This 212-nucleotide sequence from Streptomyces globosus belongs to the Rfam family "Actinobacteria sRNA Ms_IGR-5".
A search with the family's covariance model found it, with a score of 83 bits.
Taxonomically the source falls in Streptomyces (Bacteria, Actinomycetota, Actinomycetes, Streptomycetaceae).
The literature on the family includes a 2013 paper in RNA by Li et al., "Identification of small RNAs in Mycobacterium smegmatis using heterologous Hfq".
Nucleotides: 212
Stems, first nucleotide, its partner, number of pairs: 015058005060119003063115001065113002070110003074106003137206013151169006
Number, partner (000 for none) and nucleotide at each position: 001000a002000c003000a004000c005000g006000a007000g008000a009000a010000g011000g012000g013000a014000g015058g016057u017056g018055g019054u020000u021000c022000c023000g024000g025000a026000a027000a028000u029000g030000u031000a032000c033000g034000a035000c036000u037000a038000c039000c040000g041000g042000a043000c044000g045000c046000g047000u048000g049000a050000g051000g052000u053000g054019a055018c056017u057016g058015c059000g060119g061118g062117c063115u064000a065113g066112g067000g068000c069000c070110c071109g072108u073000c074106g075105u076104c077000g078000c079000a080000a081000c082000g083000c084000a085000c086000c087000c088000a089000g090000u091000g092000c093000g094000g095000u096000g097000c098000c099000c100000g101000g102000c103000g104076g105075a106074c107000a108072a109071c110070g111000c112066c113065c114000g115063g116000c117062g118061c119060c120000a121000a122000a123000c124000c125000a126000c127000a128000g129000c130000a131000g132000u133000c134000a135000c136000c137206c138205g139204a140203c141202c142201c143200g144199c145198g146197g147196g148195c149194u150000c151169g152168c153167c154166g155165g156164c157000a158000c159000g160000u161000c162000c163000g164156g165155c166154c167153g168152g169151c170000u171000c172000c173000u174000c175000u176000c177000a178000c179000u180000g181000c182000a183000g184000g185000a186000g187000a188000g189000g190000a191000c192000g193000g194149a195148g196147c197146c198145c199144g200143c201142g202141g203140g204139u205138c206137g207000c208000c209000u210000g211000c212000g